[Rfam]
RNA sequence: AUUUGUCGUGAAUCUUGAUGAGCGUUGCCCAAAUUUCUGAGCGCCCAUUGUAAAGGCCGACAUAUACUAAACAAAAUGUCUGAAAAUCCCUUCUGUAGCUCGAAAAAACACGUUUUUCUUGCUGAAAAUUUCAGAU
Numbered sequence: 001a002u003u004u005g006u007c008g009u010g011a012a013u014c015u016u017g018a019u020g021a022g023c024g025u026u027g028c029c030c031a032a033a034u035u036u037c038u039g040a041g042c043g044c045c046c047a048u049u050g051u052a053a054a055g056g057c058c059g060a061c062a063u064a065u066a067c068u069a070a071a072c073a074a075a076a077u078g079u080c081u082g083a084a085a086a087u088c089c090c091u092u093c094u095g096u097a098g099c100u101c102g103a104a105a106a107a108a109c110a111c112g113u114u115u116u117u118c119u120u121g122c123u124g125a126a127a128a129u130u131u132c133a134g135a136u
Stems, first nucleotide, its partner, number of pairs: 004062005010057001016050005022044005032036001073131003077127001079125002082118005094112003